[Rfam]
RNA sequence: CGGAUGGGGGCCGGCGAUGCGCCCCGGUCGGAUGUGGAACGGCGAAAGCCGGUCCGCCGAUCGGCUCGGGACGUGGACCGACGAGGAUUGCGACGGCGUCCAAAGCACGGGCCUUUGAUACGCCCGUGGAAUGUCGUCGUUGCGAUCGUGGAUGGCAGCGCGCGCCGUCACGGCGUGCCUCGGCACUUGCGCGCUCCUGUCGUCGGCCUGCGGGCUCCCCAUUCGACCCGUCUUGAAACACGG
Dot-bracket structure: ((((((((((...((......................................................................................................................................................................................................))))))))))))..((((........))))
Overview:
This 243-nucleotide part of an RNA from Tripterygium wilfordii belongs to the Rfam family "Archaeal large subunit ribosomal RNA". Taxonomically the source falls in Tripterygium (Eukaryota, Embryophyta, eudicotyledons, rosids).